[Rfam]
RNA: Ribosomal S15 leader
Organism: Neisseria meningitidis
RNA sequence: GUUGUCUUCAGGCUUGGCAAACUUGUCUGAAUCCCUAUGGGGAUUCUUAUAUUUUUGGAGUUUUCAUUAUGGCACUGACCGUAGAACAAAAAGCACAAAUCGUUAAAGAUUUCCAACGCAAAGAA
Numbered sequence: 001g002u003u004g005u006c007u008u009c010a011g012g013c014u015u016g017g018c019a020a021a022c023u024u025g026u027c028u029g030a031a032u033c034c035c036u037a038u039g040g041g042g043a044u045u046c047u048u049a050u051a052u053u054u055u056u057g058g059a060g061u062u063u064u065c066a067u068u069a070u071g072g073c074a075c076u077g078a079c080c081g082u083a084g085a086a087c088a089a090a091a092a093g094c095a096c097a098a099a100u101c102g103u104u105a106a107a108g109a110u111u112u113c114c115a116a117c118g119c120a121a122a123g124a125a
Stems, first nucleotide, its partner, number of pairs: 007031006055078004060073001